[Rfam]
RNA sequence: AUAAAGGUAUUUGCAGCAGCUUAUAUAAGUCCAUAAUCGGUUGGACGUUUCUACCAACUACCGUAAUAGUUGCCUAUAAGUCUUAUUCAGGGUAUC
Numbered sequence: 001a002u003a004a005a006g007g008u009a010u011u012u013g014c015a016g017c018a019g020c021u022u023a024u025a026u027a028a029g030u031c032c033a034u035a036a037u038c039g040g041u042u043g044g045a046c047g048u049u050u051c052u053a054c055c056a057a058c059u060a061c062c063g064u065a066a067u068a069g070u071u072g073c074c075u076a077u078a079a080g081u082c083u084u085a086u087u088c089a090g091g092g093u094a095u096c
Stems, first nucleotide, its partner, number of pairs: 019081007029046005055072006
Dot-bracket structure: ..................(((((((...(((((........)))))........((((((......))))))..)))))))...............